[Rfam]
RNA sequence: CUCCGAUAAUGGCAAACUUAUUGAAAAGUAAGGACGCAAAGCUACGGGGCUAAAGCUAUGUGCUAUGCUCGCCGAGUUACCGAA
Numbered sequence: 001c002u003c004c005g006a007u008a009a010u011g012g013c014a015a016a017c018u019u020a021u022u023g024a025a026a027a028g029u030a031a032g033g034a035c036g037c038a039a040a041g042c043u044a045c046g047g048g049g050c051u052a053a054a055g056c057u058a059u060g061u062g063c064u065a066u067g068c069u070c071g072c073c074g075a076g077u078u079a080c081c082g083a084a
Base pairs, nucleotide, nucleotide: 012037013036017032018031019030020029021028022027040078041077042076043075045074046073047072048069049068050067055063056062
The record is an 84-nucleotide RNA from Filobacillus milosensis, which matches "c-di-GMP-I riboswitch aptamer" in Rfam. Taxonomically the source falls in Filobacillus (Bacteria, Bacilli, Caryophanales, Bacillaceae). Its family is annotated with cyclic-di-GMP binding in the Gene Ontology.